[Rfam]
RNA sequence: AAGCACCAGAUACAAGCCUGACAGUCUGCUCCGCCCUGUGCGUGUUGCACAAUGGGGUUAACCUAUGACUGCAUGGCUUCAAAAGGUGCGAGAACAACAUCAGCCCUGAGAUUUAAGCCCUUCAGUGGAAAGCAACACUGUUGAGUUAUAACUCAGAGGCACAAAU
Numbered sequence: 001a002a003g004c005a006c007c008a009g010a011u012a013c014a015a016g017c018c019u020g021a022c023a024g025u026c027u028g029c030u031c032c033g034c035c036c037u038g039u040g041c042g043u044g045u046u047g048c049a050c051a052a053u054g055g056g057g058u059u060a061a062c063c064u065a066u067g068a069c070u071g072c073a074u075g076g077c078u079u080c081a082a083a084a085g086g087u088g089c090g091a092g093a094a095c096a097a098c099a100u101c102a103g104c105c106c107u108g109a110g111a112u113u114u115a116a117g118c119c120c121u122u123c124a125g126u127g128g129a130a131a132g133c134a135a136c137a138c139u140g141u142u143g144a145g146u147u148a149u150a151a152c153u154c155a156g157a158g159g160c161a162c163a164a165a166u
Base pairs, nucleotide, nucleotide: 003089004088005087006086007085015078016077017076018075022071023070024069025068026067027060028059030057031056032055034054037051038050039049040048041047103160104159105158122140124139125138126137127136141156142155143154144153145152146151
RNA: Small Cajal body specific RNA 1